[Rfam]
RNA sequence: GUCCCUGUAGCGCAGAGGAUAGCGCGUCGGACUUCUAAUCCGAAGGUCGUGGGUUCGAUCCCCACCAGGGAUG
Numbered sequence: 001g002u003c004c005c006u007g008u009a010g011c012g013c014a015g016a017g018g019a020u021a022g023c024g025c026g027u028c029g030g031a032c033u034u035c036u037a038a039u040c041c042g043a044a045g046g047u048c049g050u051g052g053g054u055u056c057g058a059u060c061c062c063c064a065c066c067a068g069g070g071a072u073g
Stems, first nucleotide, its partner, number of pairs: 001072007010025004027043005049065005